[Rfam]
This 112-nucleotide RNA from Solihabitans fulvus belongs to the Rfam family "SAM (S-adenosyl methionine) riboswitch aptamer". The source organism's lineage runs through Bacteria, Actinomycetota, Actinomycetes, Pseudonocardiales and Solihabitans. Its family is annotated with regulation of gene expression and S-adenosylmethionine metabolic process in the Gene Ontology.

RNA sequence: GGUCAUGAGUGUCAGCACCAGAUCUCGGCCUGCGCAACGACAACCGUCCCGCGCGGUGGGUGCUCAAGGUGACGACCUGGCGGUGCCGACGACGGCGCCGCAACGGCGCGAA
Dot-bracket structure: ((((....(..(..((....(........).))..).)(.(..((..((.....))..)).).).........))))..(((((((((....)))))))))...........